[Rfam]
RNA sequence: UGACCUUGGAAAUCAAGCAUGGGCGGAGCCUGUUCAAGUGACAGCAGGCGACCCAUGCUUGGUUUCAAAGGUUA
Numbered sequence: 001u002g003a004c005c006u007u008g009g010a011a012a013u014c015a016a017g018c019a020u021g022g023g024c025g026g027a028g029c030c031u032g033u034u035c036a037a038g039u040g041a042c043a044g045c046a047g048g049c050g051a052c053c054c055a056u057g058c059u060u061g062g063u064u065u066c067a068a069a070g071g072u073u074a
Base pairs, nucleotide, nucleotide: 002073003072004071005070006069007068009066010065011064012063013062014061016059017058021054022053023052028049029048030047031046

mir-551 microRNA precursor family: a 74-nucleotide sequence from Geotrypetes seraphini. It scores 70 bits against the family's covariance model. Gene Ontology terms of the family: miRNA-mediated post-transcriptional gene silencing and RISC complex.